[Rfam]
RNA sequence: UCCUCGCUCAAACAAUCGCAAUCAAAGCUUCCACACCGAGAGGGGCCUUCGCGCCUCUUUCUCCUCCAUCACAUACAGCUUUGGGAGAAAGUCCCCGGACACGCCAUGGGUUUUUCUCGUGGCAUGCGGAAACGCGCCGCCAUAGAUGCAAGCACACCUGCGGCUUACUCGCCUGCCCUAUCCUCUCACAACCGGAGAUCGUCCCCAUUGCCGUCUGCACUCCGCAUGUGCGCUGUUGGCUCUCUUGCUGGUCUCUCGCUCGGUCGCCUCGCCUGCAAAGGGGAUGAGGAUAUGAGUCCGUGGCCGAGCACCGGGGGCUGGCUCUGGGGGUCUUCUGGCCUGCGUGAGGAGGAGGCGGUGGGUUCGUCUUGGUAAUCUCGCGGUCUUUGGGCUGUGGGGUUCAGGUUGGGCAUCUGGCAUCUUCUUCGUCGAGGUCGAAAGAUAUGCGAUUGCCCUCUCUUCUCUGAGGGGGUAACUCGAUGGGGCUUAUUCUUGAUGCGAGG
Numbered sequence: 001u002c003c004u005c006g007c008u009c010a011a012a013c014a015a016u017c018g019c020a021a022u023c024a025a026a027g028c029u030u031c032c033a034c035a036c037c038g039a040g041a042g043g044g045g046c047c048u049u050c051g052c053g054c055c056u057c058u059u060u061c062u063c064c065u066c067c068a069u070c071a072c073a074u075a076c077a078g079c080u081u082u083g084g085g086a087g088a089a090a091g092u093c094c095c096c097g098g099a100c101a102c103g104c105c106a107u108g109g110g111u112u113u114u115u116c117u118c119g120u121g122g123c124a125u126g127c128g129g130a131a132a133c134g135c136g137c138c139g140c141c142a143u144a145g146a147u148g149c150a151a152g153c154a155c156a157c158c159u160g161c162g163g164c165u166u167a168c169u170c171g172c173c174u175g176c177c178c179u180a181u182c183c184u185c186u187c188a189c190a191a192c193c194g195g196a197g198a199u200c201g202u203c204c205c206c207a208u209u210g211c212c213g214u215c216u217g218c219a220c221u222c223c224g225c226a227u228g229u230g231c232g233c234u235g236u237u238g239g240c241u242c243u244c245u246u247g248c249u250g251g252u253c254u255c256u257c258g259c260u261c262g263g264u265c266g267c268c269u270c271g272c273c274u275g276c277a278a279a280g281g282g283g284a285u286g287a288g289g290a291u292a293u294g295a296g297u298c299c300g301u302g303g304c305c306g307a308g309c310a311c312c313g314g315g316g317g318c319u320g321g322c323u324c325u326g327g328g329g330g331u332c333u334u335c336u337g338g339c340c341u342g343c344g345u346g347a348g349g350a351g352g353a354g355g356c357g358g359u360g361g362g363u364u365c366g367u368c369u370u371g372g373u374a375a376u377c378u379c380g381c382g383g384u385c386u387u388u389g390g391g392c393u394g395u396g397g398g399g400u401u402c403a404g405g406u407u408g409g410g411c412a413u414c415u416g417g418c419a420u421c422u423u424c425u426u427c428g429u430c431g432a433g434g435u436c437g438a439a440a441g442a443u444a445u446g447c448g449a450u451u452g453c454c455c456u457c458u459c460u461u462c463u464c465u466g467a468g469g470g471g472g473u474a475a476c477u478c479g480a481u482g483g484g485g486c487u488u489a490u491u492c493u494u495g496a497u498g499c500g501a502g503g
Stems, first nucleotide, its partner, number of pairs: 002503006008496004014451006022085001023083006038063008089488003093485004125136004368405005376399004382392001384390002453472006

Shown here is a 503-nucleotide sequence from Aureobasidium pullulans, a member of the family "RNase MRP". The family's RNA type in Rfam is ribozyme. Rfam describes the family as follows. RNase MRP is an enzymatically active ribonucleoprotein with two distinct roles in eukaryotes. Taxonomically the source falls in Aureobasidium pullulans (Eukaryota, Ascomycota, dothideomyceta, Saccotheciaceae). It scores 91 bits against the family's covariance model.